[Rfam]
RNA: c-di-AMP riboswitch aptamer (ydaO/yuaA leader)
RNA sequence: GUAGAGUAAGAGCCAGCUUAGAGCGGAGGAACCAAAUCUUGGGGCUAAUCUCGUAACUUGAGAGAGACACCUUCCAGUCUUAGCCCGUCAGCUAACUCCGUCGGCAUUGGGAGGAGUACCU
Numbered sequence: 001g002u003a004g005a006g007u008a009a010g011a012g013c014c015a016g017c018u019u020a021g022a023g024c025g026g027a028g029g030a031a032c033c034a035a036a037u038c039u040u041g042g043g044g045c046u047a048a049u050c051u052c053g054u055a056a057c058u059u060g061a062g063a064g065a066g067a068c069a070c071c072u073u074c075c076a077g078u079c080u081u082a083g084c085c086c087g088u089c090a091g092c093u094a095a096c097u098c099c100g101u102c103g104g105c106a107u108u109g110g111g112a113g114g115a116g117u118a119c120c121u
Stems, first nucleotide, its partner, number of pairs: 023101006033041002042086003050062004065080004